RNA sequence: AGCCGGUGAUGAAUUUAUAAUUUUCUGACACCUCGUAUGAGUGCUGCAAAAGCAUUUUGAUUACACUUUUUUUAUUCUGAGGCUU
Numbered sequence: 001a002g003c004c005g006g007u008g009a010u011g012a013a014u015u016u017a018u019a020a021u022u023u024u025c026u027g028a029c030a031c032c033u034c035g036u037a038u039g040a041g042u043g044c045u046g047c048a049a050a051a052g053c054a055u056u057u058u059g060a061u062u063a064c065a066c067u068u069u070u071u072u073u074a075u076u077c078u079g080a081g082g083c084u085u
Stems, first nucleotide, its partner, number of pairs: 001084004043056001045054003
The family of this 85-nucleotide RNA sequence from Acipenser ruthenus is "Small nucleolar RNA SNORD60". Rfam classes the family as a C/D-box small nucleolar RNA. The family has 22 seed sequences and 825 matches in Rfam 15.1. Its family is annotated with RNA processing and nucleolus in the Gene Ontology.